A member of the RNA family "Termite-flg RNA", 101 nucleotides long. By type it is a cis-regulatory element. Pairs were carried over by alignment from the consensus structure, which is taken from published work.
[Rfam]
RNA sequence: AAUCGUUUCGUUCUGUAAGCGGAUAAAGAAAACGGCGGCGCGAAACCGUUUUUGGCAGACGCUCCCGCGGGACGGCUCCGGCACGGAUGGCCGGAGUAAAU
Numbered sequence: 001a002a003u004c005g006u007u008u009c010g011u012u013c014u015g016u017a018a019g020c021g022g023a024u025a026a027a028g029a030a031a032a033c034g035g036c037g038g039c040g041c042g043a044a045a046c047c048g049u050u051u052u053u054g055g056c057a058g059a060c061g062c063u064c065c066c067g068c069g070g071g072a073c074g075g076c077u078c079c080g081g082c083a084c085g086g087a088u089g090g091c092c093g094g095a096g097u098a099a100a101u
Stems, first nucleotide, its partner, number of pairs: 009074008019062003028053008075097008